Shown here is a 152-nucleotide RNA sequence from Stackebrandtia nassauensis, a member of the family "c-di-AMP riboswitch aptamer (ydaO/yuaA leader)".

RNA sequence: GAUAGCGUCCCGCCGAAUCGCCCGUAUGGGCGAACCGGGGACCCAACUGGUCCGUGUGUGUCACGAACCCGGGGUGAAUCCGCGCGUAGCGCGGUAGGGCGUCUUCGGCCCGAACCCGUCAGCUAACUCGGUAGGCGGCCGACGAAGAAGGA
Numbered sequence: 001g002a003u004a005g006c007g008u009c010c011c012g013c014c015g016a017a018u019c020g021c022c023c024g025u026a027u028g029g030g031c032g033a034a035c036c037g038g039g040g041a042c043c044c045a046a047c048u049g050g051u052c053c054g055u056g057u058g059u060g061u062c063a064c065g066a067a068c069c070c071g072g073g074g075u076g077a078a079u080c081c082g083c084g085c086g087u088a089g090c091g092c093g094g095u096a097g098g099g100c101g102u103c104u105u106c107g108g109c110c111c112g113a114a115c116c117c118g119u120c121a122g123c124u125a126a127c128u129c130g131g132u133a134g135g136c137g138g139c140c141g142a143c144g145a146a147g148a149a150g151g152a
Base pairs, nucleotide, nucleotide: 011137012136013135014134018033019032020031021030022029023028034132035131036130037129038128039127044071072117073116074115080094081093082092083091097111098110099109100108
The match comes from Rfam's covariance-model search (84 bits).